RNA: Purine riboswitch aptamer
RNA sequence: UAUGCUAACAUAAUCAACUGUUGUAUAACCUCAAUGAUAUGGUUUGAGGGUCUCUACCAGGAACCGAUAAUUCCUGAUUACAAAAAUGGCUAUUUUCAUU
Numbered sequence: 001u002a003u004g005c006u007a008a009c010a011u012a013a014u015c016a017a018c019u020g021u022u023g024u025a026u027a028a029c030c031u032c033a034a035u036g037a038u039a040u041g042g043u044u045u046g047a048g049g050g051u052c053u054c055u056a057c058c059a060g061g062a063a064c065c066g067a068u069a070a071u072u073c074c075u076g077a078u079u080a081c082a083a084a085a086a087u088g089g090c091u092a093u094u095u096u097c098a099u100u
Stems, first nucleotide, its partner, number of pairs: 019085001021083005029049006058076006
Dot-bracket structure: ..................(.(((((...((((((.........))))))........((((((.......))))))..))))).)...............